[Rfam]
RNA sequence: CUCUUAUCGAGAAAGGCAGAGGGAUCAGGCCCUGUGAAGCCUUAGCAACCAUUUCGCAGUCUUUUCAAUAAGCUGCGGGAAAGGUGCUACUUCCUGCUCCAUAACGUGGAGAAAGAUAAGCA
Numbered sequence: 001c002u003c004u005u006a007u008c009g010a011g012a013a014a015g016g017c018a019g020a021g022g023g024a025u026c027a028g029g030c031c032c033u034g035u036g037a038a039g040c041c042u043u044a045g046c047a048a049c050c051a052u053u054u055c056g057c058a059g060u061c062u063u064u065u066c067a068a069u070a071a072g073c074u075g076c077g078g079g080a081a082a083g084g085u086g087c088u089a090c091u092u093c094c095u096g097c098u099c100c101a102u103a104a105c106g107u108g109g110a111g112a113a114a115g116a117u118a119a120g121c122a
Stems, first nucleotide, its partner, number of pairs: 003120006013043005021032003026096004044088004049084002052080009092114001097111006
The family of this 122-nucleotide RNA from Halalkalibaculum roseum is "SAM riboswitch aptamer (S box leader)". The organism belongs to Halalkalibaculum, within Bacteria. Rfam links the family to the GO term regulation of gene expression. The match comes from Rfam's covariance-model search (78 bits).